[Rfam]
RNA sequence: AAAGCAGGCGAGGUGAUCGCGACCGGGAGACGCCCAAGCCCUCUGGCUGGUGGAACGGACCGGUUGAGGAAAGUCCGGGCUCCCCAAUGGCCAGGCUUGCUGGGUAACGCCCAGUGCGGGUGACCGUGAGGAGAGUGCCACAGAAACACACCGCCGAUGGCCCCUCGGGGAUCAGGCAAGGGUGCAAAGGUGCGGUAAGAGCGCACCAGCAGCAUCGAGAGGUGCUGGCUCGGUAAACCCCGGCUGGGAGCAAGGCCUAGGAACAAGGGUUGGCCAUGACACCCGUUCCGUUUUUCUUGCGCCGCUUGAGGCCACCGGUAACGGUGGUCCCAGACAGAUGAUCGCCCCCUUUCUUCGGAGAGGAGAACAGAACCCGGCUUACGUCCUGCUUUCACC
Numbered sequence: 001a002a003a004g005c006a007g008g009c010g011a012g013g014u015g016a017u018c019g020c021g022a023c024c025g026g027g028a029g030a031c032g033c034c035c036a037a038g039c040c041c042u043c044u045g046g047c048u049g050g051u052g053g054a055a056c057g058g059a060c061c062g063g064u065u066g067a068g069g070a071a072a073g074u075c076c077g078g079g080c081u082c083c084c085c086a087a088u089g090g091c092c093a094g095g096c097u098u099g100c101u102g103g104g105u106a107a108c109g110c111c112c113a114g115u116g117c118g119g120g121u122g123a124c125c126g127u128g129a130g131g132a133g134a135g136u137g138c139c140a141c142a143g144a145a146a147c148a149c150a151c152c153g154c155c156g157a158u159g160g161c162c163c164c165u166c167g168g169g170g171a172u173c174a175g176g177c178a179a180g181g182g183u184g185c186a187a188a189g190g191u192g193c194g195g196u197a198a199g200a201g202c203g204c205a206c207c208a209g210c211a212g213c214a215u216c217g218a219g220a221g222g223u224g225c226u227g228g229c230u231c232g233g234u235a236a237a238c239c240c241c242g243g244c245u246g247g248g249a250g251c252a253a254g255g256c257c258u259a260g261g262a263a264c265a266a267g268g269g270u271u272g273g274c275c276a277u278g279a280c281a282c283c284c285g286u287u288c289c290g291u292u293u294u295u296c297u298u299g300c301g302c303c304g305c306u307u308g309a310g311g312c313c314a315c316c317g318g319u320a321a322c323g324g325u326g327g328u329c330c331c332a333g334a335c336a337g338a339u340g341a342u343c344g345c346c347c348c349c350u351u352u353c354u355u356c357g358g359a360g361a362g363g364a365g366a367a368c369a370g371a372a373c374c375c376g377g378c379u380u381a382c383g384u385c386c387u388g389c390u391u392u393c394a395c396c
Base pairs, nucleotide, nucleotide: 001392002391003390004389005388006387007386008385010382012346013345014344015343016342017341018340020066021065022064023063024062025061026060071380072379073378075377076376077375078374079373080250081249082248083247089288090287092285094245095244096243098242099241100114101113102112103111104110115129116127117126118125119124130240131239135238136237137234138233139232151181152180153177154176155175158174159173160172161170162169163168189207190206191205192204193203194202209229210227211226212225213224214223215222216221254303255302256301264299265298266297267296268295279293281291282290310329311328312327313326314325315324316323317322

Shown here is a 396-nucleotide RNA sequence from Synechococcus sp. LTW-R, a member of the family "Bacterial RNase P class A". Rfam describes the family as follows. Ribonuclease P (RNase P) is a ubiquitous endoribonuclease, found in archaea, bacteria and eukarya as well as chloroplasts and mitochondria. Gene Ontology terms of the family: tRNA processing, dimeric ribonuclease P complex and ribonuclease P activity. It is annotated as a ribozyme. The base pairs follow the family's consensus structure, which is taken from published work.